A member of the RNA family "PAGEV RNA", 216 nucleotides long.
[Rfam]
RNA sequence: CGAGGGUUGGAAUCACGAUGUUGUGGCCCCCGCUAGCGUUUUAUCCGGUCAUCACGGGGAUCCUCGCAGACCGGACGGUAUAGCUGCAUCAGUUCUAAAGUAGGCCGCUGGGGGUUACUCACCACUGCCCCGGUGCUCCGAAUUUCAUGAGAGCUGAUGCACUACACGCCGCGAGGGGGUGGGUCGUGUUGGACGGCCUAGAAAGUGUAGACGCCG
Numbered sequence: 001c002g003a004g005g006g007u008u009g010g011a012a013u014c015a016c017g018a019u020g021u022u023g024u025g026g027c028c029c030c031c032g033c034u035a036g037c038g039u040u041u042u043a044u045c046c047g048g049u050c051a052u053c054a055c056g057g058g059g060a061u062c063c064u065c066g067c068a069g070a071c072c073g074g075a076c077g078g079u080a081u082a083g084c085u086g087c088a089u090c091a092g093u094u095c096u097a098a099a100g101u102a103g104g105c106c107g108c109u110g111g112g113g114g115u116u117a118c119u120c121a122c123c124a125c126u127g128c129c130c131c132g133g134u135g136c137u138c139c140g141a142a143u144u145u146c147a148u149g150a151g152a153g154c155u156g157a158u159g160c161a162c163u164a165c166a167c168g169c170c171g172c173g174a175g176g177g178g179g180u181g182g183g184u185c186g187u188g189u190u191g192g193a194c195g196g197c198c199u200a201g202a203a204a205g206u207g208u209a210g211a212c213g214c215c216g
Base pairs, nucleotide, nucleotide: 001032002031004029005028006027007026044075045074046073047072048071049070063175064174065173066172067171086160087159088158089157090156091155092154093153094152095151162210163209164208165207166206167205180200181199182198183197184196185195